[Rfam]
RNA: mir-317 microRNA precursor family
Organism: Tribolium castaneum
RNA sequence: GUGGGGCGGUGCUGGGGACCACCCUGUGUUUACUCUGUAUUUCGACCAGUGAACACAGCUGGUGGUAUCUCAGUUUCUUCCCAUCA
Numbered sequence: 001g002u003g004g005g006g007c008g009g010u011g012c013u014g015g016g017g018a019c020c021a022c023c024c025u026g027u028g029u030u031u032a033c034u035c036u037g038u039a040u041u042u043c044g045a046c047c048a049g050u051g052a053a054c055a056c057a058g059c060u061g062g063u064g065g066u067a068u069c070u071c072a073g074u075u076u077c078u079u080c081c082c083a084u085c086a
Base pairs, nucleotide, nucleotide: 008077009076011074012073015071016069017068018066019065021063022062023061024058025057026056028054030052031051